[Rfam]
RNA: MIR5070 microRNA precursor family
RNA sequence: AAGGGUACCCUCUGACCCUCUUUAGUUCAAACAAAUGAACUAGUUGUUUAAAAAGUGAUGCGAUUUUAAAAUUUUAGUUCAUUUGGUUGAACUAAGUAGGGUCAGAGGGUACCCUU
Numbered sequence: 001a002a003g004g005g006u007a008c009c010c011u012c013u014g015a016c017c018c019u020c021u022u023u024a025g026u027u028c029a030a031a032c033a034a035a036u037g038a039a040c041u042a043g044u045u046g047u048u049u050a051a052a053a054a055g056u057g058a059u060g061c062g063a064u065u066u067u068a069a070a071a072u073u074u075u076a077g078u079u080c081a082u083u084u085g086g087u088u089g090a091a092c093u094a095a096g097u098a099g100g101g102u103c104a105g106a107g108g109g110u111a112c113c114c115u116u
Stems, first nucleotide, its partner, number of pairs: 002115018021096010032085012